[Rfam]
RNA: RpsF leader
RNA sequence: UACAUUACUUAUUACGUUCCUUGCUUCCGUGGUCACUUAUUAAUCGCCCUAAUCGGAGGCUGAAUAAUCCGUAAGGAGCAGUUUUAUG
Numbered sequence: 001u002a003c004a005u006u007a008c009u010u011a012u013u014a015c016g017u018u019c020c021u022u023g024c025u026u027c028c029g030u031g032g033u034c035a036c037u038u039a040u041u042a043a044u045c046g047c048c049c050u051a052a053u054c055g056g057a058g059g060c061u062g063a064a065u066a067a068u069c070c071g072u073a074a075g076g077a078g079c080a081g082u083u084u085u086a087u088g
Stems, first nucleotide, its partner, number of pairs: 016079007023060006031049002